Shown here is a 68-nucleotide RNA sequence from Drosophila ananassae, a member of the family "mir-3 microRNA precursor family". Gene Ontology terms of the family: RISC complex and miRNA-mediated post-transcriptional gene silencing. Its Rfam clan is "mir-3 clan". It is one of the family's seed sequences.
RNA sequence: AUUAUACGACAAACCUUGUUCGGUUUUGCCAAUUUCCUAGCAGCACUGGGUAAAGUUUGUCCUAUAAU
Dot-bracket structure: ....((.(((((((..(((.((((....................)))).)))..))))))).))....
Numbered sequence: 001a002u003u004a005u006a007c008g009a010c011a012a013a014c015c016u017u018g019u020u021c022g023g024u025u026u027u028g029c030c031a032a033u034u035u036c037c038u039a040g041c042a043g044c045a046c047u048g049g050g051u052a053a054a055g056u057u058u059g060u061c062c063u064a065u066a067a068u
Stems, first nucleotide, its partner, number of pairs: 005064002008061007017052003021048004